[Rfam]
RNA sequence: GCUGGAUCGGUGAUGUUUUAUAAAACUGCGUUAUCUAUCUGAUUGUCCAUUUUGGAUCUGAAGAUCAACUUUGCAUUUCUGAGAUCCCUU
Dot-bracket structure: (..((((............................................................................))))..)
Numbered sequence: 001g002c003u004g005g006a007u008c009g010g011u012g013a014u015g016u017u018u019u020a021u022a023a024a025a026c027u028g029c030g031u032u033a034u035c036u037a038u039c040u041g042a043u044u045g046u047c048c049a050u051u052u053u054g055g056a057u058c059u060g061a062a063g064a065u066c067a068a069c070u071u072u073g074c075a076u077u078u079c080u081g082a083g084a085u086c087c088c089u090u
Stems, first nucleotide, its partner, number of pairs: 001090001004087004